About this RNA:
The family of this 144-nucleotide sequence from Planococcus lenghuensis is "FMN riboswitch aptamer (RFN element)". It scores 112 bits against the family's covariance model. NCBI's taxonomy places the organism under Bacteria, Bacillati, Bacilli, Caryophanales, Planococcus. Its family is annotated with FMN binding in the Gene Ontology.
[Rfam]
Nucleotides: 144
Base pairs, nucleotide, nucleotide: 003142004141005140006139007138008137009136010135017029018028019027031124032123033113034112035061036060037059038058056111057110065088066087067086068085093109094108095107096106097105115127116126117125
Number, partner (000 for none) and nucleotide at each position: 001000c002000g003142u004141c005140u006139u007138c008137u009136u010135c011000g012000g013000g014000g015000c016000a017029g018028g019027g020000u021000g022000a023000a024000a025000u026000u027019c028018c029017u030000g031124a032123c033113c034112g035061a036060c037059g038058g039000u040000g041000a042000g043000c044000g045000g046000g047000a048000a049000a050000c051000c052000g053000c054000a055000a056111g057110u058038c059037c060036g061035u062000g063000a064000a065088c066087u067086g068085u069000u070000u071000c072000c073000a074000u075000g076000c077000g078000a079000a080000a081000g082000g083000a084000a085068a086067u087066g088065g089000c090000c091000g092000a093109g094108c095107c096106g097105g098000u099000g100000g101000a102000a103000a104000u105097c106096c107095g108094g109093c110057a111056c112034c113033g114000a115127c116126a117125g118000u119000u120000a121000u122000a123032g124031u125117c126116u127115g128000g129000a130000u131000g132000g133000g134000a135010g136009a137008a138007g139006a140005a141004g142003a143000c144000g